[Rfam]
RNA sequence: ACGCCGCUCACGCGGCGUUCACGCUCCUCAACGGGGCCUGAAAAGCGGGGGUGGUGCCGUGUCGGCGCAGCACCACCCCCGCGCC
Numbered sequence: 001a002c003g004c005c006g007c008u009c010a011c012g013c014g015g016c017g018u019u020c021a022c023g024c025u026c027c028u029c030a031a032c033g034g035g036g037c038c039u040g041a042a043a044a045g046c047g048g049g050g051g052u053g054g055u056g057c058c059g060u061g062u063c064g065g066c067g068c069a070g071c072a073c074c075a076c077c078c079c080c081g082c083g084c085c
Stems, first nucleotide, its partner, number of pairs: 001018007019041003023037005045082013059068003
The family of this 85-nucleotide RNA sequence from Streptomyces sp. MZ04 is "Streptomyces RNA 6106". Lineage of the source: Bacteria > Actinomycetota > Actinomycetes > Kitasatosporales > Streptomyces. A search with the family's covariance model found it, with a score of 69 bits. By type it is a small RNA. Pairs were carried over by alignment from the consensus structure.